[Rfam]
Nucleotides: 276
Base pairs, nucleotide, nucleotide: 001276002275003274004273005272006271007270008269009268010267024114025113026112027111028110029109044094045093046092047091048090049089053066054065055064056063069083070082071081072080122248123247124246125245126244132236133235137232138231139230140229141228142227143216144215145214146213151210152209153208154207160189161188162187163186164185165184166183191205192204193203194202195201
Number, partner (000 for none) and nucleotide at each position: 001276c002275a003274g004273a005272a006271c007270a008269a009268a010267g011000c012000a013000a014000g015000c016000a017000g018000g019000a020000a021000a022000g023000a024114c025113u026112g027111g028110g029109u030000g031000a032000a033000g034000c035000g036000a037000u038000a039000g040000g041000g042000c043000u044094a045093c046092a047091c048090a049089c050000a051000a052000g053066u054065a055064a056063c057000a058000u059000g060000g061000u062000a063056g064055u065054u066053a067000g068000g069083c070082u071081g072080u073000g074000a075000g076000a077000a078000u079000g080072a081071c082070a083069g084000a085000c086000a087000g088000a089049g090048u091047g092046u093045g094044u095000g096000a097000a098000g099000a100000a101000u102000a103000a104000a105000c106000a107000u108000g109029a110028c111027c112026c113025g114024g115000c116000a117000a118000a119000a120000c121000a122248g123247u124246u125245g126244a127000a128000g129000a130000a131000a132236g133235u134000a135000g136000g137232a138231a139230c140229u141228g142227u143216a144215g145214g146213a147000c148000a149000a150000g151210a152209a153208a154207g155000c156000a157000a158000a159000g160189u161188g162187a163186a164185c165184u166183g167000u168000a169000c170000u171000a172000a173000u174000u175000g176000a177000a178000g179000a180000a181000a182000a183166c184165a185164g186163u187162u188161u189160a190000g191205c192204a193203c194202u195201a196000g197000c198000c199000a200000a201195u202194a203193g204192u205191g206000a207154c208153u209152u210151u211000a212000c213146u214145c215144c216143u217000u218000a219000a220000c221000c222000a223000a224000g225000a226000a227142g228141c229140a230139g231138u232137u233000a234000a235133a236132c237000g238000g239000a240000a241000g242000a243000a244126u245125c246124a247123a248122c249000a250000a251000g252000c253000g254000a255000g256000a257000g258000g259000a260000c261000a262000c263000a264000g265000u266000a267010c268009u269008u270007u271006g272005u273004u274003c275002u276001g
Background
The family of this 276-nucleotide RNA is "RAGATH-8 RNA". The sequence is in the family's curated seed alignment. It is annotated as a small RNA.